The family of this 107-nucleotide sequence from Pullulanibacillus pueri is "SAM riboswitch aptamer (S box leader)". Rfam links the family to the GO term regulation of gene expression. Taxonomically the source falls in Pullulanibacillus (Bacteria, Bacillota, Bacilli, Sporolactobacillaceae). The family has 457 seed sequences and 9,625 matches in Rfam 15.1.
[Rfam]
RNA sequence: GACUUAUCCAGAGAGGUGGAGGGACUGGCCCUGUGAAACCCGGCAACCCCCGAGAGGUAUUUCGGAAAGGUGCUAAAUCCUGCAAGCGGUAGCUUGGUAGAUAAGAG
Numbered sequence: 001g002a003c004u005u006a007u008c009c010a011g012a013g014a015g016g017u018g019g020a021g022g023g024a025c026u027g028g029c030c031c032u033g034u035g036a037a038a039c040c041c042g043g044c045a046a047c048c049c050c051c052g053a054g055a056g057g058u059a060u061u062u063c064g065g066a067a068a069g070g071u072g073c074u075a076a077a078u079c080c081u082g083c084a085a086g087c088g089g090u091a092g093c094u095u096g097g098u099a100g101a102u103a104a105g106a107g
Base pairs, nucleotide, nucleotide: 003105004104005103006102007101008100013041015040016039017038021031022030023029025082027080028079042074043073044072045071047070048069050065051064052063078099083096084095085094086093087092